[Rfam]
RNA sequence: GAGCUAUGAGGAAGAUAUUAAUGUGGUCUGAGAUACCACUGAUGACUGUAAGAUCCAACUCUGAGCUCGCUGCC
Numbered sequence: 001g002a003g004c005u006a007u008g009a010g011g012a013a014g015a016u017a018u019u020a021a022u023g024u025g026g027u028c029u030g031a032g033a034u035a036c037c038a039c040u041g042a043u044g045a046c047u048g049u050a051a052g053a054u055c056c057a058a059c060u061c062u063g064a065g066c067u068c069g070c071u072g073c074c
Base pairs, nucleotide, nucleotide: 001068002067003066004065

The family of this 74-nucleotide RNA from Pelusios castaneus is "Small nucleolar RNA SNORD19". By type it is a C/D-box small nucleolar RNA. The pairing is the family consensus, mapped onto this sequence. The literature on the family includes a 2001 paper in EMBO J by Huttenhofer et al., "RNomics: an experimental approach that identifies 201 candidates for novel, small, non-messenger RNAs in mouse". A search with the family's covariance model found it, with a score of 56 bits. The family has 22 seed sequences and 1,431 matches in Rfam 15.1.